Small nucleolar RNA SNORA28: a 126-nucleotide sequence from Molossus molossus.
[Rfam]
RNA sequence: AAGGAACACUAUGUGGCAGAUGAUCAAAACAGUCUGACACAGCUUGAGCUUGCUAUAGCAACAAAGUCUAACCCAUUCUGGUGUUCUCUCCUCUAUCAGACAAGCCAUUAUAUAGACUUAGACAGU
Numbered sequence: 001a002a003g004g005a006a007c008a009c010u011a012u013g014u015g016g017c018a019g020a021u022g023a024u025c026a027a028a029a030c031a032g033u034c035u036g037a038c039a040c041a042g043c044u045u046g047a048g049c050u051u052g053c054u055a056u057a058g059c060a061a062c063a064a065a066g067u068c069u070a071a072c073c074c075a076u077u078c079u080g081g082u083g084u085u086c087u088c089u090c091c092u093c094u095a096u097c098a099g100a101c102a103a104g105c106c107a108u109u110a111u112a113u114a115g116a117c118u119u120a121g122a123c124a125g126u
Stems, first nucleotide, its partner, number of pairs: 009048002012041004017036005064119007075111002079107004087100003
A search with the family's covariance model found it, with a score of 121 bits. For this family Rfam cites "RNomics: an experimental approach that identifies 201 candidates for novel, small, non-messenger RNAs in mouse" (Huttenhofer et al., EMBO J, 2001). ACA28 is a member of the H/ACA class of snoRNA that guide the sites of modification of uridines to pseudouridines.